DUF805b RNA: a 37-nucleotide RNA sequence. The family is grouped with related families in Rfam's "DUF805 clan". The family's consensus secondary structure is taken from published work.

RNA sequence: GCAGGGGAAGCUGAAAACCUGUAGAACCGAGUAGGCA
Numbered sequence: 001g002c003a004g005g006g007g008a009a010g011c012u013g014a015a016a017a018c019c020u021g022u023a024g025a026a027c028c029g030a031g032u033a034g035g036c037a
Stems, first nucleotide, its partner, number of pairs: 002021004010036003